[Rfam]
RNA sequence: UCUAACCUGGGAUGUACGAUUUAACUUAUCCUUUUUGAACCUACAUUUACUUUAAACGGAAUGCCUAUAUUUCUAAUUGGCUGUCAGGCCUUCAUUGCGCAGAGGAAGACAAAAAAUUAGUUGCGGCGAUCCACCUAGCUAGAGCUAGGAGUCAAUUGAUAGGCCCGGCACUCUGGGUUAGAU
Numbered sequence: 001u002c003u004a005a006c007c008u009g010g011g012a013u014g015u016a017c018g019a020u021u022u023a024a025c026u027u028a029u030c031c032u033u034u035u036u037g038a039a040c041c042u043a044c045a046u047u048u049a050c051u052u053u054a055a056a057c058g059g060a061a062u063g064c065c066u067a068u069a070u071u072u073c074u075a076a077u078u079g080g081c082u083g084u085c086a087g088g089c090c091u092u093c094a095u096u097g098c099g100c101a102g103a104g105g106a107a108g109a110c111a112a113a114a115a116a117u118u119a120g121u122u123g124c125g126g127c128g129a130u131c132c133a134c135c136u137a138g139c140u141a142g143a144g145c146u147a148g149g150a151g152u153c154a155a156u157u158g159a160u161a162g163g164c165c166c167g168g169c170a171c172u173c174u175g176g177g178u179u180a181g182a183u
Stems, first nucleotide, its partner, number of pairs: 002181010013170003017167002032158001036154003040149002058132003062128004069122001073120006084109002089105004
Rfam assigns this 183-nucleotide RNA from Pseudobutyrivibrio ruminis to the family "6S / SsrS RNA". From the family's description: E. coli 6S RNA was the first non coding RNA to be sequenced, but its function was unknown until recently. For this family Rfam cites "6S RNA regulates E. coli RNA polymerase activity" (Wassarman and Storz, Cell, 2000). By type it is a non-coding RNA gene.